[Rfam]
RNA: U2 spliceosomal RNA
Organism: Penicillium solitum
RNA sequence: UCAGCUCUCUUUGCCUAUUGGCUUAGAUCAAGUGUAGUAUCUGUUCUUUUCAGUUUAAUCUCUGAAAGUUUCCGUCCAGGAAACACUUUGAUUAUUCCUAUUUUUGGUACCCGCGACCUGGCCACUGUGCUUGCGCAUGCCUCGUCGCACAGUGUCAUUGGGCUUACACUACACCCGAUCGACGCGAACUCCU
Numbered sequence: 001u002c003a004g005c006u007c008u009c010u011u012u013g014c015c016u017a018u019u020g021g022c023u024u025a026g027a028u029c030a031a032g033u034g035u036a037g038u039a040u041c042u043g044u045u046c047u048u049u050u051c052a053g054u055u056u057a058a059u060c061u062c063u064g065a066a067a068g069u070u071u072c073c074g075u076c077c078a079g080g081a082a083a084c085a086c087u088u089u090g091a092u093u094a095u096u097c098c099u100a101u102u103u104u105u106g107g108u109a110c111c112c113g114c115g116a117c118c119u120g121g122c123c124a125c126u127g128u129g130c131u132u133g134c135g136c137a138u139g140c141c142u143c144g145u146c147g148c149a150c151a152g153u154g155u156c157a158u159u160g161g162g163c164u165u166a167c168a169c170u171a172c173a174c175c176c177g178a179u180c181g182a183c184g185c186g187a188a189c190u191c192c193u
Stems, first nucleotide, its partner, number of pairs: 008027003013022003048067006068084006113148005120141001126137004152185005157179006